This 165-nucleotide RNA sequence belongs to the Rfam family "Lysine riboswitch aptamer". It scores 79 bits against the family's covariance model.
[Rfam]
RNA sequence: UAUAACUAUAGAGGAGCUUUUACCAUAAGUAAGUAUUCUGAGCCGCAAGCAAUGAUGAUACCUAAAGGGGAUAAAAGCCGAAUUAUUCUAAAUGGCAAUUUGGGAUAAUGGUAGAAAAGCAUAAAAGAUUUCUACUCUGGUUUAUACCAAGGUGCUAUAGAAUUA
Number, nucleotide and partner (000 for none) at each position: 001u000002a000003u000004a000005a000006c160007u159008a158009u157010a156011g155012a000013g000014g000015a000016g078017c077018u076019u075020u074021u073022a072023c000024c070025a000026u000027a000028a000029g000030u000031a000032a063033g062034u000035a000036u000037u058038c057039u000040g000041a000042g000043c000044c000045g000046c000047a000048a000049g000050c000051a000052a000053u000054g000055a000056u000057g038058a037059u000060a000061c000062c033063u032064a000065a000066a000067g000068g000069g000070g024071a000072u022073a021074a020075a019076a018077g017078c016079c000080g000081a000082a109083u108084u107085a106086u105087u104088c103089u102090a101091a100092a099093u098094g000095g000096c000097a000098a093099u092100u091101u090102g089103g088104g087105a086106u085107a084108a083109u082110g136111g135112u134113a133114g132115a131116a130117a000118a129119g000120c127121a000122u000123a000124a000125a000126a000127g120128a000129u118130u116131u115132c114133u113134a112135c111136u110137c000138u149139g148140g147141u146142u000143u000144a000145u000146a141147c140148c139149a138150a000151g000152g000153u000154g000155c011156u010157a009158u008159a007160g006161a000162a000163u000164u000165a000